[Rfam]
c-di-GMP-I riboswitch aptamer: a 92-nucleotide sequence from Litchfieldella anticariensis. A search with the family's covariance model found it, with a score of 62 bits. Its family is annotated with cyclic-di-GMP binding in the Gene Ontology. GEMM was predicted in a large-scale screen for bacterial structured RNA regulatory elements.

RNA sequence: CACAUUGGAAGGCACACCCGUACGAAAGACGGGGUCGCAAAGCCUCCGGUCUACCACUCCGCAUGCGGGGCCAGGAUAGCGGGGCUGCCGAA
Numbered sequence: 001c002a003c004a005u006u007g008g009a010a011g012g013c014a015c016a017c018c019c020g021u022a023c024g025a026a027a028g029a030c031g032g033g034g035u036c037g038c039a040a041a042g043c044c045u046c047c048g049g050u051c052u053a054c055c056a057c058u059c060c061g062c063a064u065g066c067g068g069g070g071c072c073a074g075g076a077u078a079g080c081g082g083g084g085c086u087g088c089c090g091a092a
Base pairs, nucleotide, nucleotide: 012038013037017033018032019031020030021029023028041086042085043084044083046082047081048080049077050076051075057070058069059068060067061066